[Rfam]
RNA sequence: AUCCAAGGUGAUUCCCUCUUCCAAGGGGCCUACUCUAGUGCCCCUCUUCAGGAAAGUAGCAACUUGGAAUAAAAUCUGGCACGCCUCAGGUUUCUGGGGAGAAGGGGAUGUUUGUUUCUUUGCCUUCCUUUGGCUGCCUACAUGU
Numbered sequence: 001a002u003c004c005a006a007g008g009u010g011a012u013u014c015c016c017u018c019u020u021c022c023a024a025g026g027g028g029c030c031u032a033c034u035c036u037a038g039u040g041c042c043c044c045u046c047u048u049c050a051g052g053a054a055a056g057u058a059g060c061a062a063c064u065u066g067g068a069a070u071a072a073a074a075u076c077u078g079g080c081a082c083g084c085c086u087c088a089g090g091u092u093u094c095u096g097g098g099g100a101g102a103a104g105g106g107g108a109u110g111u112u113u114g115u116u117u118c119u120u121u122g123c124c125u126u127c128c129u130u131u132g133g134c135u136g137c138c139u140a141c142a143u144g145u
Base pairs, nucleotide, nucleotide: 002068003067004066005065006064007063009061010060020053021052022051024045025044026043027042028041029040079135082133089126096118098117099116100115

Small nucleolar RNA SNORA67: a 145-nucleotide RNA from Physeter macrocephalus.
The family has 12 seed sequences and 580 matches in Rfam 15.1.
The source organism's lineage runs through Eukaryota, Craniata, Vertebrata, Laurasiatheria and Physeter.
Rfam links the family to the GO terms RNA processing and nucleolus.